A member of the RNA family "Eukaryotic large subunit ribosomal RNA" from Dictyostelium purpureum, 482 nucleotides of a longer RNA. NCBI's taxonomy places the organism under Eukaryota, Eumycetozoa, Dictyostelia, Dictyosteliaceae, Dictyostelium. Gene Ontology terms of the family: ribosome and structural constituent of ribosome.
RNA sequence: GGUAGUAGCAAAUAUUCAAAAGAAUUUACUUUGAAGGCCGAAGUGGAGAAGGGUUCCAUAACAAUGGAAUUCAUUUAUGGGUGAGUCGAUCCUAAGGUCUGGGUUAACUCUCUCUAAUAAGCUUACUAGGUGCAUGGAUCGAAAGUGAAGUGUACUCUCAACUAGUAAGCUUAUGGGCCGAAAGGGAAGCGGGUUAAAAUUCCUGCACCACUCUAAAGGAUAUUAGGGCAACCGAUCGUAAUCCGGGACAUCAAUUGGUGGUCGAGGAAGAGUUAUCUUUUCUUAUUAACACUGUCUUGAAGUCCAUUGAAUCAGGUCAACUGGAGACGUGGAUUUAUCGCACAGUGGAAGAGCACAAACCAUUGGUUUGGGUCUCGCAUCCGUUAAUUGGUCCUUGAAAACCGGAUUAUGGUAUUUAGUCCUUUGGAGUGUUCGUACCAAUAACCACAUCAGGUCUCCAAGGUGAAUAGCCUCUGGUCAAA
Numbered sequence: 001g002g003u004a005g006u007a008g009c010a011a012a013u014a015u016u017c018a019a020a021a022g023a024a025u026u027u028a029c030u031u032u033g034a035a036g037g038c039c040g041a042a043g044u045g046g047a048g049a050a051g052g053g054u055u056c057c058a059u060a061a062c063a064a065u066g067g068a069a070u071u072c073a074u075u076u077a078u079g080g081g082u083g084a085g086u087c088g089a090u091c092c093u094a095a096g097g098u099c100u101g102g103g104u105u106a107a108c109u110c111u112c113u114c115u116a117a118u119a120a121g122c123u124u125a126c127u128a129g130g131u132g133c134a135u136g137g138a139u140c141g142a143a144a145g146u147g148a149a150g151u152g153u154a155c156u157c158u159c160a161a162c163u164a165g166u167a168a169g170c171u172u173a174u175g176g177g178c179c180g181a182a183a184g185g186g187a188a189g190c191g192g193g194u195u196a197a198a199a200u201u202c203c204u205g206c207a208c209c210a211c212u213c214u215a216a217a218g219g220a221u222a223u224u225a226g227g228g229c230a231a232c233c234g235a236u237c238g239u240a241a242u243c244c245g246g247g248a249c250a251u252c253a254a255u256u257g258g259u260g261g262u263c264g265a266g267g268a269a270g271a272g273u274u275a276u277c278u279u280u281u282c283u284u285a286u287u288a289a290c291a292c293u294g295u296c297u298u299g300a301a302g303u304c305c306a307u308u309g310a311a312u313c314a315g316g317u318c319a320a321c322u323g324g325a326g327a328c329g330u331g332g333a334u335u336u337a338u339c340g341c342a343c344a345g346u347g348g349a350a351g352a353g354c355a356c357a358a359a360c361c362a363u364u365g366g367u368u369u370g371g372g373u374c375u376c377g378c379a380u381c382c383g384u385u386a387a388u389u390g391g392u393c394c395u396u397g398a399a400a401a402c403c404g405g406a407u408u409a410u411g412g413u414a415u416u417u418a419g420u421c422c423u424u425u426g427g428a429g430u431g432u433u434c435g436u437a438c439c440a441a442u443a444a445c446c447a448c449a450u451c452a453g454g455u456c457u458c459c460a461a462g463g464u465g466a467a468u469a470g471c472c473u474c475u476g477g478u479c480a481a482a
Base pairs, nucleotide, nucleotide: 015035016034017033018032019031020030036479037478038477039476045459046458047457048456051439052438056080057079058078059077060076061075065073066072087435088434089433091185092184096179097178102111103110121170122169123168124167125166126165127164128163129162189206190205191204192203193202209431210430211429212428214426215425216424217423218422219420224234226233227232241407242406243405244404245403246402250392251391252390253389255387256386257385258384259383260382261381263377264376265375266286268284269283270282271281290347291346292345293344294343303333304332305331306330307329312324313323314322315321354372356370357369358368359367360366445454446453461473462472463471464470